A member of the RNA family "Small nucleolar RNA SNORD112" from Neotoma lepida, 77 nucleotides long. Gene Ontology terms of the family: nucleolus and RNA processing. Taxonomically the source falls in Neotoma (Eukaryota, Gnathostomata, Mammalia, Glires). By type it is a C/D-box small nucleolar RNA.

RNA sequence: UGGACCAAUGAUGGGAAAGUGUCUAUGAACAAAGGAUCAUGAUUAAGCUGGUUCUUUAGCAAAUGCAGAGGUCCGUU
Numbered sequence: 001u002g003g004a005c006c007a008a009u010g011a012u013g014g015g016a017a018a019g020u021g022u023c024u025a026u027g028a029a030c031a032a033a034g035g036a037u038c039a040u041g042a043u044u045a046a047g048c049u050g051g052u053u054c055u056u057u058a059g060c061a062a063a064u065g066c067a068g069a070g071g072u073c074c075g076u077u
Stems, first nucleotide, its partner, number of pairs: 001075006

The literature on the family includes a 2002 paper in Hum Mol Genet by Cavaille et al., "Identification of tandemly-repeated C/D snoRNA genes at the imprinted human 14q32 domain reminiscent of those at the Prader-Willi/Angelman syndrome region".